[Rfam]
Small nucleolar RNA SNORD11B: an 87-nucleotide sequence from Tupaia belangeri. The family's RNA type in Rfam is C/D-box small nucleolar RNA. Taxonomically the source falls in Tupaia belangeri (Eukaryota, Craniata, Gnathostomata, Teleostomi). For this family Rfam cites "snoSeeker: an advanced computational package for screening of guide and orphan snoRNA genes in the human genome" (Yang et al., Nucleic Acids Res, 2006). It scores 99 bits against the family's covariance model.
RNA sequence: GGAUGGCAGUGAUGAUUUUCACAUUUAUUGUUCACCUGAUUACAUCAAAAUGAGGGUGUACAGUCACUACCUCAUCUGAUGCCAUCU
Numbered sequence: 001g002g003a004u005g006g007c008a009g010u011g012a013u014g015a016u017u018u019u020c021a022c023a024u025u026u027a028u029u030g031u032u033c034a035c036c037u038g039a040u041u042a043c044a045u046c047a048a049a050a051u052g053a054g055g056g057u058g059u060a061c062a063g064u065c066a067c068u069a070c071c072u073c074a075u076c077u078g079a080u081g082c083c084a085u086c087u
Base pairs, nucleotide, nucleotide: 002086003085004084005083006082007081
Dot-bracket structure: .((((((.........................................................................)))))).